[Rfam]
A member of the RNA family "mir-16 microRNA precursor family" from Chelydra serpentina, 77 nucleotides long. The base pairs follow the family's consensus structure, which was predicted with PFOLD. NCBI's taxonomy places the organism under Eukaryota, Bilateria, Craniata, Sauropsida, Chelydra.

RNA sequence: CUGCCAGCAGCAGCACAGAAGUAAGGGUGGCAAUACCAUACCAUGCCACCCUUACUUCUGUGCUGCUGCCUUGAGAG
Numbered sequence: 001c002u003g004c005c006a007g008c009a010g011c012a013g014c015a016c017a018g019a020a021g022u023a024a025g026g027g028u029g030g031c032a033a034u035a036c037c038a039u040a041c042c043a044u045g046c047c048a049c050c051c052u053u054a055c056u057u058c059u060g061u062g063c064u065g066c067u068g069c070c071u072u073g074a075g076a077g
Base pairs, nucleotide, nucleotide: 001077002076005073006072007071009067010066011065012064013063014062015061016060018057020056021055022054023053024052025051026050027049